Rfam assigns this 126-nucleotide RNA from Panicum virgatum to the family "Small nucleolar RNA snoR111".
It is annotated as an H/ACA-box small nucleolar RNA.
Pairs were carried over by alignment from the consensus structure, which was predicted with WAR.
A search with the family's covariance model found it, with a score of 46 bits.
A reference for the family is Marker et al. (2002), "Experimental RNomics: identification of 140 candidates for small non-messenger RNAs in the plant Arabidopsis thaliana", Curr Biol.
Gene Ontology terms of the family: RNA processing and nucleolus.
Rfam 15.1 lists 533 matches to the family in 223 species.

[Rfam]
RNA sequence: AUACCGGCGGGGGCACGAACUAUUUUGUGCGGCGCCGCGAUGCAAAGAGGGGAUAGAUCGACGCGUCAAGAAAUCGUUUCAGUUGCCAUGACUCCAGUAGGCAAUAUGAUUGUUGCUUGACCACAG
Dot-bracket structure: ....((..(...(((((........)))))....)..)).........................(.((((..((((.....((((((............)))))).)))).....)))).).....